[Rfam]
RNA: ASpks TB sRNA
RNA sequence: CUUCAACGAGCCCAGCAGCAGCGGCUGGUCGUCGGUCCGGGACUGGCCGUAGGUCGCGAGGAGCGCCUGGGCCUC
Numbered sequence: 001c002u003u004c005a006a007c008g009a010g011c012c013c014a015g016c017a018g019c020a021g022c023g024g025c026u027g028g029u030c031g032u033c034g035g036u037c038c039g040g041g042a043c044u045g046g047c048c049g050u051a052g053g054u055c056g057c058g059a060g061g062a063g064c065g066c067c068u069g070g071g072c073c074u075c
Base pairs, nucleotide, nucleotide: 014026015025016024032070033069038065039064043060044059047056049054